[Rfam]
RNA sequence: UCUCGCCCUAUGGGGGCCAUACCAGAAGUGCUCAUGUUGCAACCCCUGUCAGGUAAUACCUGCAAAUUCUGCU
Numbered sequence: 001u002c003u004c005g006c007c008c009u010a011u012g013g014g015g016g017c018c019a020u021a022c023c024a025g026a027a028g029u030g031c032u033c034a035u036g037u038u039g040c041a042a043c044c045c046c047u048g049u050c051a052g053g054u055a056a057u058a059c060c061u062g063c064a065a066a067u068u069c070u071g072c073u
Base pairs, nucleotide, nucleotide: 013046014045015044016043021073023071024070025069026068027067028040029039030038050062051061052060053059054058
Description: This 73-nucleotide RNA sequence from Crocodylus porosus belongs to the Rfam family "Mammalian CPEB3 ribozyme". Its family is annotated with RNA nuclease activity in the Gene Ontology. Taxonomically the source falls in Crocodylus (Eukaryota, Opisthokonta, Euteleostomi, Sarcopterygii).